[Rfam]
RNA sequence: CCAGUAUAAAGGCAAACCUGCUGAAAAGCAGGGACGCAAAGCCGUGAGUCUAAGGCAUUUAUAAUGCUAGGAUCGUCAGGCCGCCGUA
Numbered sequence: 001c002c003a004g005u006a007u008a009a010a011g012g013c014a015a016a017c018c019u020g021c022u023g024a025a026a027a028g029c030a031g032g033g034a035c036g037c038a039a040a041g042c043c044g045u046g047a048g049u050c051u052a053a054g055g056c057a058u059u060u061a062u063a064a065u066g067c068u069a070g071g072a073u074c075g076u077c078a079g080g081c082c083g084c085c086g087u088a
Stems, first nucleotide, its partner, number of pairs: 012037002017032006041081003045078003048073003055067004
Dot-bracket structure: ...........((...((((((....))))))...))...(((.((((((....((((.....))))...)))..)))))).......
RNA: c-di-GMP-I riboswitch aptamer
Organism: Bacillus sp. SJS